[Rfam]
RNA sequence: UAUCGUUUUUCAGGAGAGAAUUGUUCUUAGGCUUAUCAAAUUUUGCACAAAUCGUUUGGCAAACGAAUAGCCCAGCAAUCACCGAAGGCGCAAUGUACCCCUUAUAAUCGCUCAGGUAAACGGACUGAAAAACUUAA
Numbered sequence: 001u002a003u004c005g006u007u008u009u010u011c012a013g014g015a016g017a018g019a020a021u022u023g024u025u026c027u028u029a030g031g032c033u034u035a036u037c038a039a040a041u042u043u044u045g046c047a048c049a050a051a052u053c054g055u056u057u058g059g060c061a062a063a064c065g066a067a068u069a070g071c072c073c074a075g076c077a078a079u080c081a082c083c084g085a086a087g088g089c090g091c092a093a094u095g096u097a098c099c100c101c102u103u104a105u106a107a108u109c110g111c112u113c114a115g116g117u118a119a120a121c122g123g124a125c126u127g128a129a130a131a132a133c134u135u136a137a
Stems, first nucleotide, its partner, number of pairs: 006132008020079006081117003084113002088111003094104002
Shown here is a 137-nucleotide RNA sequence from Moraxella caviae, a member of the family "Glycine riboswitch aptamer". The source organism's lineage runs through Bacteria, Pseudomonadati, Gammaproteobacteria, Moraxellaceae and Moraxella. Its family is annotated with glycine biosynthetic process in the Gene Ontology.